[Rfam]
Shown here is a 175-nucleotide sequence from Escherichia coli, a member of the family "sok antitoxin (CssrC)". Gene Ontology term of the family: mRNA binding. The sequence is in the family's curated seed alignment.

RNA sequence: GGGUGCUUGAGGCUAUCUGCCUCGGGCAUGAACACCAACGGCAGAUAGAGAAAAGCCCCAGUUAACAUUAUGCGUCUUGCAGGACGCUUAACAUUAAUCUGAGGCCAAUUUCAUGCUAGUCACAUGUAGGUUAGCCUCUUACACGCCGAAAGGCAAGGAGAAGCAGGCUAUGAAG
Dot-bracket structure: (((.((((....(((((((((....(........)....)))))))))....)))))))((.(((..((....................))..)).).))(((((..((((((((.......)))).))))..)))))...(...(................)...)........